Small Cajal body specific RNA 4: a 129-nucleotide sequence from Falco tinnunculus. A search with the family's covariance model found it, with a score of 87 bits. Taxonomically the source falls in Falco (Eukaryota, Eumetazoa, Dinosauria, Theropoda). The family's consensus secondary structure was predicted with RNAfold.
RNA sequence: ACUGGAGGACUAAUCAGACCGAGUUUGAAGAGUGAGACUCGGAUGACAGUAGCCUCCUAAAAGAAAAGGGAUGGAGAGAGCAGUCCUGCUUACAGCAGAGCAAAGGGCUGACUGUGCCAUCUGACAACU
Numbered sequence: 001a002c003u004g005g006a007g008g009a010c011u012a013a014u015c016a017g018a019c020c021g022a023g024u025u026u027g028a029a030g031a032g033u034g035a036g037a038c039u040c041g042g043a044u045g046a047c048a049g050u051a052g053c054c055u056c057c058u059a060a061a062a063g064a065a066a067a068g069g070g071a072u073g074g075a076g077a078g079a080g081c082a083g084u085c086c087u088g089c090u091u092a093c094a095g096c097a098g099a100g101c102a103a104a105g106g107g108c109u110g111a112c113u114g115u116g117c118c119a120u121c122u123g124a125c126a127a128c129u
Base pairs, nucleotide, nucleotide: 003059004057005056006055007054008053017044019042021040022039023038024037025036026035068122069121070120079113080112081110082109083108084107085106086105087104091102093100
On this family, see Darzacq et al., EMBO J 2002: "Cajal body-specific small nuclear RNAs: a novel class of 2'-O-methylation and pseudouridylation guide RNAs". Gene Ontology terms of the family: Cajal body, nucleolus and RNA processing. The family is grouped with related families in Rfam's "SCARNA4 clan".